About this RNA
Shown here is a 79-nucleotide RNA sequence from Zizania palustris, a member of the family "Small nucleolar RNA R12".
[Rfam]
RNA sequence: GUGGGGAUGAUGAAGAAAAUCAGACGGAUUCCCAUUGAUUUCUAAUCGAAAUAUGAUCUUUAAGCUACUUCUGACCCAA
Number, nucleotide and partner (000 for none) at each position: 001g000002u078003g077004g076005g075006g000007a000008u000009g000010a000011u000012g000013a000014a000015g000016a000017a000018a000019a000020u000021c000022a000023g000024a000025c000026g000027g000028a000029u000030u000031c000032c000033c000034a000035u000036u000037g000038a000039u000040u000041u000042c000043u000044a000045a000046u000047c000048g000049a000050a000051a000052u000053a000054u000055g000056a000057u000058c000059u000060u000061u000062a000063a000064g000065c000066u000067a000068c000069u000070u000071c000072u000073g000074a000075c005076c004077c003078a002079a000
snoR12 is a C/D box small nucleolar RNA, which acts as a methylation guide for 25S ribosomal RNA in plants. snoR12 has been alternatively named snoZ44 in Arabidopsis and snoZ131 in rice. It scores 89 bits against the family's covariance model. On this family, see Chen et al., Nucleic Acids Res 2003: "The high diversity of snoRNAs in plants: identification and comparative study of 120 snoRNA genes from Oryza sativa".